[Rfam]
The record is a 62-nucleotide sequence from Clostridium fallax, which matches "Fluoride riboswitch aptamer (crcB RNA motif)" in Rfam.
Rfam links the family to the GO terms positive regulation of gene expression and response to fluoride.
For this family Rfam cites "Widespread genetic switches and toxicity resistance proteins for fluoride" (Baker et al., Science, 2012).
Lineage of the source: Bacteria > Clostridia > Eubacteriales > Clostridiaceae > Clostridium.
RNA sequence: AUUUUAAUAGGUUAUGGAGUUAACCGUAAACCGCGAAAAAAGCUGAUGACUCCUACAUAAAA
Numbered sequence: 001a002u003u004u005u006a007a008u009a010g011g012u013u014a015u016g017g018a019g020u021u022a023a024c025c026g027u028a029a030a031c032c033g034c035g036a037a038a039a040a041a042g043c044u045g046a047u048g049a050c051u052c053c054u055a056c057a058u059a060a061a062a
Stems, first nucleotide, its partner, number of pairs: 010025004016053006033043002